[Rfam]
RNA sequence: UUUUGUACGUUUUGUACGUCGCUUUGGAUAAAAGCGUCUGCCAAAUGAAUAAAU
Numbered sequence: 001u002u003u004u005g006u007a008c009g010u011u012u013u014g015u016a017c018g019u020c021g022c023u024u025u026g027g028a029u030a031a032a033a034g035c036g037u038c039u040g041c042c043a044a045a046u047g048a049a050u051a052a053a054u
Base pairs, nucleotide, nucleotide: 013043014041015040016039020036021035022034023033024032025031
Source information: The record is a 54-nucleotide RNA from Megalops atlanticus, which matches "UnaL2 LINE 3' element" in Rfam. Rfam classes the family as a cis-regulatory element. The eel long interspersed element (LINE) UnaL2 and its partner short interspersed element (SINE) share a conserved 3' tail containing a stem-loop that is critical for their retrotransposition. Presumably, the first step of retrotransposition is the recognition of their 3' tails by UnaL2-encoded reverse transcriptase. The solution structure of a 17-nucleotide RNA derived from the 3' tail of UnaL2 was determined by NMR. For this family Rfam cites "Solution structure of an RNA stem-loop derived from the 3' conserved region of eel LINE UnaL2" (Baba et al., RNA, 2004). The match comes from Rfam's covariance-model search (56 bits).